[Rfam]
RNA sequence: UGAUAGCUGUGAAGCGAGAGGUUGCUGUCUCGAAAGAGCAGGAGUUCCGCGGAGCGAAUGUCAAGUCUCGAUACUGACGACAA
Numbered sequence: 001u002g003a004u005a006g007c008u009g010u011g012a013a014g015c016g017a018g019a020g021g022u023u024g025c026u027g028u029c030u031c032g033a034a035a036g037a038g039c040a041g042g043a044g045u046u047c048c049g050c051g052g053a054g055c056g057a058a059u060g061u062c063a064a065g066u067c068u069c070g071a072u073a074c075u076g077a078c079g080a081c082a083a
Base pairs, nucleotide, nucleotide: 014050015049016048018047019046020045025041026040027039028038059082060081061080062079065078066077067076

Record summary: This 83-nucleotide RNA sequence belongs to the Rfam family "S10-Clostridia ribosomal protein leader". On this family, see Eckert and Weinberg, BMC Microbiol 2020: "Discovery of 20 novel ribosomal leader candidates in bacteria and archaea". It is one of the family's seed sequences. The family's consensus secondary structure is taken from published work.